Record summary:
This 205-nucleotide RNA from Exiguobacterium artemiae belongs to the Rfam family "HNH endonuclease-associated RNA and ORF (HEARO) RNA". Rfam 15.1 lists 952 matches to the family in 249 species. For this family Rfam cites "Exceptional structured noncoding RNAs revealed by bacterial metagenome analysis" (Weinberg et al., Nature, 2009).
RNA sequence: GUCAAUUACCUAUCACUAAAGUGACGGGCUUAUACAGCUUGAAAUUGACUAGUCUAGGUUCUCACGAACUACGUUGGUUGGGUCAUGACACCUCUCGGUGCCCGUUCUAGCCGUUUGCCCUGUCGUCUGUUAUUAAAAGUCCUGUUAGGUCGGGGCGGUGUUGCAGAUGGAAAAAGCCUUUCCAACAUUGACGAAGAACAACAAA
Numbered sequence: 001g002u003c004a005a006u007u008a009c010c011u012a013u014c015a016c017u018a019a020a021g022u023g024a025c026g027g028g029c030u031u032a033u034a035c036a037g038c039u040u041g042a043a044a045u046u047g048a049c050u051a052g053u054c055u056a057g058g059u060u061c062u063c064a065c066g067a068a069c070u071a072c073g074u075u076g077g078u079u080g081g082g083u084c085a086u087g088a089c090a091c092c093u094c095u096c097g098g099u100g101c102c103c104g105u106u107c108u109a110g111c112c113g114u115u116u117g118c119c120c121u122g123u124c125g126u127c128u129g130u131u132a133u134u135a136a137a138a139g140u141c142c143u144g145u146u147a148g149g150u151c152g153g154g155g156c157g158g159u160g161u162u163g164c165a166g167a168u169g170g171a172a173a174a175a176g177c178c179u180u181u182c183c184a185a186c187a188u189u190g191a192c193g194a195a196g197a198a199c200a201a202c203a204a205a
Stems, first nucleotide, its partner, number of pairs: 001049007010028002015022002029037002052192003056188001057070005073186005080179004088123002092117001096113004100202001104199005125168006132161002137159001139156006